Small nucleolar RNA SNORD99: a 74-nucleotide sequence from Mastacembelus armatus. The base pairs follow the family's consensus structure, which was predicted with RNAalifold. Gene Ontology terms of the family: RNA processing and nucleolus. By type it is a C/D-box small nucleolar RNA. It scores 71 bits against the family's covariance model.
RNA sequence: ACUGAUCAAUGAUGAUGCCUUAACAUAAUGAGGACUGUUGAAUGAAGCUUGCGGAUAUGGGACUGAGAUCAGCC
Numbered sequence: 001a002c003u004g005a006u007c008a009a010u011g012a013u014g015a016u017g018c019c020u021u022a023a024c025a026u027a028a029u030g031a032g033g034a035c036u037g038u039u040g041a042a043u044g045a046a047g048c049u050u051g052c053g054g055a056u057a058u059g060g061g062a063c064u065g066a067g068a069u070c071a072g073c074c
Stems, first nucleotide, its partner, number of pairs: 002072004